[Rfam]
RNA sequence: UAGCAGACCAUGAGGAUGAAACAUCGCAUAGUUCACUCUGAUUGGAACUGUGAAGAUUGCUUUGUAUGUCUUUCGCUCCUAUCUGAGUCUGCGA
Numbered sequence: 001u002a003g004c005a006g007a008c009c010a011u012g013a014g015g016a017u018g019a020a021a022c023a024u025c026g027c028a029u030a031g032u033u034c035a036c037u038c039u040g041a042u043u044g045g046a047a048c049u050g051u052g053a054a055g056a057u058u059g060c061u062u063u064g065u066a067u068g069u070c071u072u073u074c075g076c077u078c079c080u081a082u083c084u085g086a087g088u089c090u091g092c093g094a
Stems, first nucleotide, its partner, number of pairs: 004091005
Source information: Shown here is a 94-nucleotide RNA sequence from Cladocopium goreaui, a member of the family "Small nucleolar RNA snR60/Z15/Z230/Z193/J17". The source organism's lineage runs through Eukaryota, Sar, Alveolata, Dinophyceae and Cladocopium. The family's RNA type in Rfam is C/D-box small nucleolar RNA. A reference for the family is Lowe and Eddy (1999), "A computational screen for methylation guide snoRNAs in yeast", Science. Rfam 15.1 lists 3,592 matches to the family in 1,855 species.